The record is an 88-nucleotide RNA sequence from Ixodes scapularis, which matches "mir-7 microRNA precursor family" in Rfam. It scores 64 bits against the family's covariance model. Taxonomically the source falls in Ixodes (Eukaryota, Eumetazoa, Protostomia, Arachnida). Rfam describes the family as follows. This family represents the microRNA (miRNA) precursor mir-7. Gene Ontology terms of the family: RISC complex and miRNA-mediated post-transcriptional gene silencing.
RNA sequence: CGGGGCCCUCCCGUCUGGAAGACUAGUGAUUUUGUUGUUCUGUCAAACUUGGAAACAAGAAAUCACUAUCUCCGAACGGUGGGCGCCC
Numbered sequence: 001c002g003g004g005g006c007c008c009u010c011c012c013g014u015c016u017g018g019a020a021g022a023c024u025a026g027u028g029a030u031u032u033u034g035u036u037g038u039u040c041u042g043u044c045a046a047a048c049u050u051g052g053a054a055a056c057a058a059g060a061a062a063u064c065a066c067u068a069u070c071u072c073c074g075a076a077c078g079g080u081g082g083g084c085g086c087c088c
Base pairs, nucleotide, nucleotide: 002087003086005084006083008082009081011079012078013077014076016074017073018072020071021070022069026066027065028064029063030062031061032060035058036057037056038055039054